This 78-nucleotide sequence from Brytella acorum belongs to the Rfam family "Fluoride riboswitch aptamer (crcB RNA motif)".
A search with the family's covariance model found it, with a score of 47 bits.
The family's consensus secondary structure is taken from published work.

[Rfam]
RNA sequence: UAUGAAGACGGCAAUGGACUCUGCCUGACUUCAUCCUGAAGUCGAACCGCCCUUAGGGCUGAUGACUCCUACCUCGCC
Numbered sequence: 001u002a003u004g005a006a007g008a009c010g011g012c013a014a015u016g017g018a019c020u021c022u023g024c025c026u027g028a029c030u031u032c033a034u035c036c037u038g039a040a041g042u043c044g045a046a047c048c049g050c051c052c053u054u055a056g057g058g059c060u061g062a063u064g065a066c067u068c069c070u071a072c073c074u075c076g077c078c
Stems, first nucleotide, its partner, number of pairs: 010025004016069003020065002049059003
NCBI's taxonomy places the organism under Bacteria, Pseudomonadota, Alphaproteobacteria, Acetobacterales, Brytella.